A member of the RNA family "FMN riboswitch aptamer (RFN element)" from Dellaglioa algida, 125 nucleotides long. The base pairs follow the family's consensus structure, which is taken from published work. Rfam describes the family as follows. The RFN element is a highly conserved domain that is found frequently in the 5'-untranslated regions of prokaryotic mRNAs that encode for flavin mononucleotide (FMN) biosynthesis and transport proteins.

RNA sequence: GUUCGUCUUCAGGGGCAGGGUGAAAUUCCCGACCGGCGGUGAUAGUCCGCGACCUACAUUACAUAUGUGGCUGGACUGGUGAAAUUCCAGUAUCGACAGUUAAAGUCUGGAUAAAGAAGAUAGGG
Numbered sequence: 001g002u003u004c005g006u007c008u009u010c011a012g013g014g015g016c017a018g019g020g021u022g023a024a025a026u027u028c029c030c031g032a033c034c035g036g037c038g039g040u041g042a043u044a045g046u047c048c049g050c051g052a053c054c055u056a057c058a059u060u061a062c063a064u065a066u067g068u069g070g071c072u073g074g075a076c077u078g079g080u081g082a083a084a085u086u087c088c089a090g091u092a093u094c095g096a097c098a099g100u101u102a103a104a105g106u107c108u109g110g111a112u113a114a115a116g117a118a119g120a121u122a123g124g125g
Stems, first nucleotide, its partner, number of pairs: 003123001005121006018030003032106002034095002036050004045093002054070002075091005097109003